[Rfam]
RNA sequence: CAAGGGAUAUGACGAAGAACUUAUUCCAGAGGUUGUUUCUGAGGGUAGAUCUCAUCUACCUGUGAUUAAACCUUGCACGUCAGUCUGAUCCCGUU
Numbered sequence: 001c002a003a004g005g006g007a008u009a010u011g012a013c014g015a016a017g018a019a020c021u022u023a024u025u026c027c028a029g030a031g032g033u034u035g036u037u038u039c040u041g042a043g044g045g046u047a048g049a050u051c052u053c054a055u056c057u058a059c060c061u062g063u064g065a066u067u068a069a070a071c072c073u074u075g076c077a078c079g080u081c082a083g084u085c086u087g088a089u090c091c092c093g094u095u
Base pairs, nucleotide, nucleotide: 002094004092005091006090007089